Purine riboswitch aptamer: a 102-nucleotide RNA sequence from Brevibacillus centrosporus. It scores 83 bits against the family's covariance model.

RNA sequence: UCCAAAAAGCAUAUGCAAGCUCGUAUAAUUUUGGGAAUAAGGCCCAACAGUUUCUACCGGGUGACCGUAAAUCGCCUGACUACGAGUGAGAGAACGUCACGA
Numbered sequence: 001u002c003c004a005a006a007a008a009g010c011a012u013a014u015g016c017a018a019g020c021u022c023g024u025a026u027a028a029u030u031u032u033g034g035g036a037a038u039a040a041g042g043c044c045c046a047a048c049a050g051u052u053u054c055u056a057c058c059g060g061g062u063g064a065c066c067g068u069a070a071a072u073c074g075c076c077u078g079a080c081u082a083c084g085a086g087u088g089a090g091a092g093a094a095c096g097u098c099a100c101g102a
Stems, first nucleotide, its partner, number of pairs: 019087007029049001031047005058078007